[Rfam]
RNA sequence: UUGCACUUGAUACUACCCUAGAUAUACAUGCACAGGUUGAUUUCAGACUUGUGCAUAUAUUGUAAUAUCUGGAUCCAGUAAGUGCUACAUUAAUCAGGCCAUAAGCAUUUAAGCUCAUUGUGUGUAGUUACAUCUUGAGUUAUAACUUGUGGCACAUGG
Number, nucleotide and partner (000 for none) at each position: 001u000002u000003g085004c084005a083006c082007u081008u080009g000010a000011u000012a000013c000014u000015a000016c000017c000018c072019u000020a070021g069022a068023u067024a066025u059026a058027c000028a056029u055030g054031c053032a000033c051034a050035g049036g048037u047038u046039g000040a000041u000042u000043u000044c000045a000046g038047a037048c036049u035050u034051g033052u000053g031054c030055a029056u028057a000058u026059a025060u000061u000062g000063u000064a000065a000066u024067a023068u022069c021070u020071g000072g018073a000074u000075c000076c000077a000078g000079u000080a008081a007082g006083u005084g004085c003086u000087a000088c000089a000090u000091u000092a000093a000094u000095c000096a000097g000098g153099c152100c151101a000102u000103a000104a000105g000106c000107a000108u000109u000110u000111a000112a000113g000114c000115u000116c000117a000118u000119u132120g131121u130122g129123u000124g000125u000126a000127g000128u000129u122130a121131c120132a119133u000134c000135u000136u149137g148138a147139g146140u145141u000142a000143u000144a000145a140146c139147u138148u137149g136150u000151g100152g099153c098154a000155c000156a000157u000158g000159g000
Source information: Rfam assigns this 159-nucleotide RNA sequence from Leptobrachium leishanense to the family "Small Cajal body specific RNA 1". Rfam describes the family as follows. scaRNAs are a specific class of small nuclear RNAs which localise to the Cajal bodies and guide the modification of RNA polymerase II transcribed spliceosomal RNAs U1, U2, U4, U5 and U12. The family's RNA type in Rfam is small Cajal body RNA. The family's consensus secondary structure was predicted with RNAalifold.